[Rfam]
RNA sequence: CGCGUUUUUCGCUCAGGCGGAGCUCGACCGCCGACUCAAGUGAUCGUGGCCUACAUCGACUCCUACCGGAGCCGGUUCGGCGCCCGUGCCGAUCUGCGCGGUGCUGAGUGAGCACGGCAUCCCGAUCGCGCCG
Numbered sequence: 001c002g003c004g005u006u007u008u009u010c011g012c013u014c015a016g017g018c019g020g021a022g023c024u025c026g027a028c029c030g031c032c033g034a035c036u037c038a039a040g041u042g043a044u045c046g047u048g049g050c051c052u053a054c055a056u057c058g059a060c061u062c063c064u065a066c067c068g069g070a071g072c073c074g075g076u077u078c079g080g081c082g083c084c085c086g087u088g089c090c091g092a093u094c095u096g097c098g099c100g101g102u103g104c105u106g107a108g109u110g111a112g113c114a115c116g117g118c119a120u121c122c123c124g125a126u127c128g129c130g131c132c133g
Base pairs, nucleotide, nucleotide: 016032017031018030019029020028078133079132080131081130082129090128091127093125094124096122